[Rfam]
RNA sequence: GUCACAGGUGGCGCGGCACCCCACGGGGGGCGCAGCGCCGAAAGCGCAGUACCUAACGAAGACGGUAAAAAG
Numbered sequence: 001g002u003c004a005c006a007g008g009u010g011g012c013g014c015g016g017c018a019c020c021c022c023a024c025g026g027g028g029g030g031c032g033c034a035g036c037g038c039c040g041a042a043a044g045c046g047c048a049g050u051a052c053c054u055a056a057c058g059a060a061g062a063c064g065g066u067a068a069a070a071a072g
Base pairs, nucleotide, nucleotide: 009040010039011038012037013036014035016033017032019030020029
A member of the RNA family "sucC RNA" from Pseudomonas sp. URIL14HWK12:I9, 72 nucleotides long. It scores 81 bits against the family's covariance model. NCBI's taxonomy places the organism under Bacteria, Gammaproteobacteria, Pseudomonadales, Pseudomonadaceae, Pseudomonas.